[Rfam]
RNA: Bacterial RNase P class A
RNA sequence: CGAGUAAACCAGGUGAUCGCGGGUACCGUUUGGUAUUCGAGGAAAGUCCGAGCUCCGCAGGGCAGGGUGCUGGGUAACUCCCAGUGGGGGCGACCCCAAGGAAAGUGCCACAGAAAUGUGUACCGCCGUGCGUCGGAGCCGGUCGCCGGAGGUCUGGAAUCGGCAAGCCUUCCGAGACGGACUUCCUGAGACCGGCGGCCGGUACGGUAAGGGUGGAACGGUGCGGUAAGAGCGCACCAGCGGUCAGGUGACUGGCCGGCUAGGUAAACCCCACCCGGAGCAAGACCAAAUAGGGGAACAAUGGAGCGGCCCGCUCCGUUCCCGGGUUAGGUCGCUAGAGGCGUCCGGGCAACCGGCGUCCCAGAUAGAUGAUCAUCCACGACAGAACUCGGCUUACAGGUUUACUCGCCCG
Numbered sequence: 001c002g003a004g005u006a007a008a009c010c011a012g013g014u015g016a017u018c019g020c021g022g023g024u025a026c027c028g029u030u031u032g033g034u035a036u037u038c039g040a041g042g043a044a045a046g047u048c049c050g051a052g053c054u055c056c057g058c059a060g061g062g063c064a065g066g067g068u069g070c071u072g073g074g075u076a077a078c079u080c081c082c083a084g085u086g087g088g089g090g091c092g093a094c095c096c097c098a099a100g101g102a103a104a105g106u107g108c109c110a111c112a113g114a115a116a117u118g119u120g121u122a123c124c125g126c127c128g129u130g131c132g133u134c135g136g137a138g139c140c141g142g143u144c145g146c147c148g149g150a151g152g153u154c155u156g157g158a159a160u161c162g163g164c165a166a167g168c169c170u171u172c173c174g175a176g177a178c179g180g181a182c183u184u185c186c187u188g189a190g191a192c193c194g195g196c197g198g199c200c201g202g203u204a205c206g207g208u209a210a211g212g213g214u215g216g217a218a219c220g221g222u223g224c225g226g227u228a229a230g231a232g233c234g235c236a237c238c239a240g241c242g243g244u245c246a247g248g249u250g251a252c253u254g255g256c257c258g259g260c261u262a263g264g265u266a267a268a269c270c271c272c273a274c275c276c277g278g279a280g281c282a283a284g285a286c287c288a289a290a291u292a293g294g295g296g297a298a299c300a301a302u303g304g305a306g307c308g309g310c311c312c313g314c315u316c317c318g319u320u321c322c323c324g325g326g327u328u329a330g331g332u333c334g335c336u337a338g339a340g341g342c343g344u345c346c347g348g349g350c351a352a353c354c355g356g357c358g359u360c361c362c363a364g365a366u367a368g369a370u371g372a373u374c375a376u377c378c379a380c381g382a383c384a385g386a387a388c389u390c391g392g393c394u395u396a397c398a399g400g401u402u403u404a405c406u407c408g409c410c411c412g
Stems, first nucleotide, its partner, number of pairs: 001408010012377007020039008044395003048392005053280004060312004065276005070084005085099001086097004100271002105269002107265003123212002125208007220238006240260001241258007284333004294323006303317005340360004345356004